[Rfam]
RNA sequence: UAUAAAACUACCCUUUAAGCAUUACCAUAUGAGCGAGGAAAUCAUUUUUUUGAUAAACUACAUGUUUAUCUUGGGAUGAAUCUUAACAUACUUAGUGAAGAAGGGAUACCUCAUUCUCUAAUCCGACAGCUAACCUCGUCAGCAUUUGUGCGAAAGGGU
Numbered sequence: 001u002a003u004a005a006a007a008c009u010a011c012c013c014u015u016u017a018a019g020c021a022u023u024a025c026c027a028u029a030u031g032a033g034c035g036a037g038g039a040a041a042u043c044a045u046u047u048u049u050u051u052g053a054u055a056a057a058c059u060a061c062a063u064g065u066u067u068a069u070c071u072u073g074g075g076a077u078g079a080a081u082c083u084u085a086a087c088a089u090a091c092u093u094a095g096u097g098a099a100g101a102a103g104g105g106a107u108a109c110c111u112c113a114u115u116c117u118c119u120a121a122u123c124c125g126a127c128a129g130c131u132a133a134c135c136u137c138g139u140c141a142g143c144a145u146u147u148g149u150g151c152g153a154a155a156g157g158g159u
Stems, first nucleotide, its partner, number of pairs: 013142002020031002033139006043073002074124003082100003103118004
This 159-nucleotide sequence from Gracilibacillus thailandensis belongs to the Rfam family "c-di-AMP riboswitch aptamer (ydaO/yuaA leader)". The source organism's lineage runs through Bacteria, Bacilli, Caryophanales, Bacillaceae and Gracilibacillus.